[Rfam]
RNA sequence: UGGGCAGUAUCCUUUUAGAACUGCACCUUUAGAAAAAGAGUUUUGUUAACUAAAUAGUCUGCCUUGAUCUAUAUGACAGGGACGGGAAA
Dot-bracket structure: .(((((((.((......))))))).))...............................((((((((.((.....))))))).)))....
pan motif: an 89-nucleotide RNA sequence from Psychrobacillus psychrotolerans. Lineage of the source: Bacteria > Bacillota > Bacilli > Caryophanales > Psychrobacillus. By type it is a cis-regulatory element.